[Rfam]
RNA sequence: AGGUCUGACAGUCUAUCUUCCUAUGCUACUGUAAACCUUGGAACAUAGUCUAUCGGACCUGG
Numbered sequence: 001a002g003g004u005c006u007g008a009c010a011g012u013c014u015a016u017c018u019u020c021c022u023a024u025g026c027u028a029c030u031g032u033a034a035a036c037c038u039u040g041g042a043a044c045a046u047a048g049u050c051u052a053u054c055g056g057a058c059c060u061g062g
Stems, first nucleotide, its partner, number of pairs: 001060008010051002013048004018043004
The family of this 62-nucleotide RNA sequence from Monodelphis domestica is "mir-7385 microRNA precursor family". Gene Ontology terms of the family: RISC complex and miRNA-mediated post-transcriptional gene silencing. The sequence is in the family's curated seed alignment. The base pairs follow the family's consensus structure, which was predicted with RNAalifold. The organism belongs to Monodelphis, within Eukaryota.